[Rfam]
RNA sequence: CCUCCUGUUCUUGUCACGCCCGCCCUGUGUGUGGGAGCGCGUGUAUAUAUCAUACGGAGGGACAGUGACCGACCUCAGUGUUAUGUCUUCGGUGGCAGCGGAGGUGUCCGUCUGUUGCUUCUAUCCUCACUCACUGAGACAAGA
Dot-bracket structure: (((((.........(((((...(((.......)))...)))))............)))))...............(((((..............(((((((..........))))))).............)))))........
Numbered sequence: 001c002c003u004c005c006u007g008u009u010c011u012u013g014u015c016a017c018g019c020c021c022g023c024c025c026u027g028u029g030u031g032u033g034g035g036a037g038c039g040c041g042u043g044u045a046u047a048u049a050u051c052a053u054a055c056g057g058a059g060g061g062a063c064a065g066u067g068a069c070c071g072a073c074c075u076c077a078g079u080g081u082u083a084u085g086u087c088u089u090c091g092g093u094g095g096c097a098g099c100g101g102a103g104g105u106g107u108c109c110g111u112c113u114g115u116u117g118c119u120u121c122u123a124u125c126c127u128c129a130c131u132c133a134c135u136g137a138g139a140c141a142a143g144a
Stems, first nucleotide, its partner, number of pairs: 001060005015043005023035003076136005095118007